[Rfam]
RNA sequence: GAGACACCCUUAUGGGGCAAGGUUUGCUUCAGUGGGGCUUUGGUGCUCAUUGAGUCUGCCUGCUAAGUGUGUCCCU
Numbered sequence: 001g002a003g004a005c006a007c008c009c010u011u012a013u014g015g016g017g018c019a020a021g022g023u024u025u026g027c028u029u030c031a032g033u034g035g036g037g038c039u040u041u042g043g044u045g046c047u048c049a050u051u052g053a054g055u056c057u058g059c060c061u062g063c064u065a066a067g068u069g070u071g072u073c074c075c076u
Stems, first nucleotide, its partner, number of pairs: 001075001003073005009067004015061005021056003029053008037044002